RNA sequence: UUGUGCCGGGUAAGUCUUAUACGACCAGCUCCUGCUGAAUCCCCCAGGCGUGGAAGCGAGCAAGGGUAGGCGGUCGCAGCGGUGCGAUAUAAGUAGCUUACCCUUUU
Numbered sequence: 001u002u003g004u005g006c007c008g009g010g011u012a013a014g015u016c017u018u019a020u021a022c023g024a025c026c027a028g029c030u031c032c033u034g035c036u037g038a039a040u041c042c043c044c045c046a047g048g049c050g051u052g053g054a055a056g057c058g059a060g061c062a063a064g065g066g067u068a069g070g071c072g073g074u075c076g077c078a079g080c081g082g083u084g085c086g087a088u089a090u091a092a093g094u095a096g097c098u099u100a101c102c103c104u105u106u107u
Stems, first nucleotide, its partner, number of pairs: 008103008017092005022086002024083002
A member of the RNA family "Bacteroidales small SRP" from Alistipes sp. CAG:157, 107 nucleotides long. The family's RNA type in Rfam is non-coding RNA gene. On this family, see Ryan et al., Nat Commun 2020: "A high-resolution transcriptome map identifies small RNA regulation of metabolism in the gut microbe Bacteroides thetaiotaomicron". The source organism's lineage runs through Bacteria, Pseudomonadati, Bacteroidota, Bacteroidales and Alistipes.